[Rfam]
RNA sequence: ACGGUCAUUGUCAUCUGGGGAGUAGUCGUCCGCCUUUUCUUCCGGCGGAACCUGUCGUCAACACACUCGGCCGAGAGGCCGUGGCGCACAGGAGGGCGGGCAACCGUUCGGGCGAGACCAAUGGCGCUUGCGGUUCCGCUCGGCCGGGCGGGUUCCGCGCGCGCUGUUGUGCCUUCGCUCCGCCC
Dot-bracket structure: ............................(((...............))).((((((((((.......(((((....)))))))))).))))).((((((................................................................................))))))
Annotation
The family of this 185-nucleotide RNA from Novosphingobium sp. CF614 is "Manganese Mn2+ riboswitch aptamer (yybP-ykoY)". The organism belongs to Novosphingobium, within Bacteria.